[Rfam]
RNA sequence: CAACUAGCUGUCUAGGGUUCCGUUAUUGACUGGUCCGAAAAAGGAGUGGUAUUUUACCCAGUUAAUAAGUCUGGUCCGAGAGAGAGCGUAUAGAAAUGGAUCAAGAAACCUUUUCUAUAUACACGGAAGGAUAAAAGCCUGGGAGAU
Numbered sequence: 001c002a003a004c005u006a007g008c009u010g011u012c013u014a015g016g017g018u019u020c021c022g023u024u025a026u027u028g029a030c031u032g033g034u035c036c037g038a039a040a041a042a043g044g045a046g047u048g049g050u051a052u053u054u055u056a057c058c059c060a061g062u063u064a065a066u067a068a069g070u071c072u073g074g075u076c077c078g079a080g081a082g083a084g085a086g087c088g089u090a091u092a093g094a095a096a097u098g099g100a101u102c103a104a105g106a107a108a109c110c111u112u113u114u115c116u117a118u119a120u121a122c123a124c125g126g127a128a129g130g131a132u133a134a135a136a137g138c139c140u141g142g143g144a145g146a147u
Stems, first nucleotide, its partner, number of pairs: 007087003011083002015077002020074002022071001023068011088120008122142001124145001128140003
Rfam assigns this 147-nucleotide sequence from Bacillus sp. 1NLA3E to the family "Guanidine-I riboswitch aptamer". The source organism's lineage runs through Bacteria, Bacillati, Bacillota, Bacillaceae and Bacillus. This family represents a conserved RNA structure found upstream of the ykkC and yxkD genes in Bacillus subtilis and related genes in other bacteria. The function of this family is unclear although it has been suggested that it may function to switch on efflux pumps and detoxification systems in response to harmful environmental molecules.